About this RNA:
Shown here is a 108-nucleotide RNA from Streptomyces globosus, a member of the family "Streptomyces RNA 4115". The family's RNA type in Rfam is small RNA. It scores 81 bits against the family's covariance model. From the family's description: Identified by deep sequencing of transcriptome at the end of exponential growth phase. Sequencing size consistent with notrthern blot size. Streptomyces specific. The literature on the family includes a 2011 paper in RNA Biol by Vockenhuber et al., "Deep sequencing-based identification of small non-coding RNAs in Streptomyces coelicolor". The source organism's lineage runs through Bacteria, Actinomycetota, Kitasatosporales, Streptomycetaceae and Streptomyces.
RNA sequence: GCGUGGGUCGGCCCGCUGCGUGGAUCCGGCGGGCCGGGGGAUGCCGCCGCUCCAAUCCCCGCGGGUGGCGGAACGGUCCGGGAGGUGCGCCGCGCUUCCCGGACCGCG
Number, nucleotide and partner (000 for none) at each position: 001g107002c106003g000004u000005g000006g074007g000008u072009c036010g035011g034012c033013c032014c031015g030016c029017u028018g027019c000020g000021u000022g000023g000024a000025u000026c000027c018028g017029g016030c015031g014032g013033g012034c011035c010036g009037g042038g000039g000040g000041a000042u037043g000044c071045c070046g069047c068048c067049g066050c065051u064052c063053c000054a000055a000056u000057c000058c000059c000060c000061g000062c000063g052064g051065g050066u049067g048068g047069c046070g045071g044072a008073a000074c006075g105076g104077u103078c102079c101080g100081g099082g098083a097084g096085g095086u094087g093088c000089g000090c000091c000092g000093c087094g086095c085096u084097u083098c082099c081100c080101g079102g078103a077104c076105c075106g002107c001108g000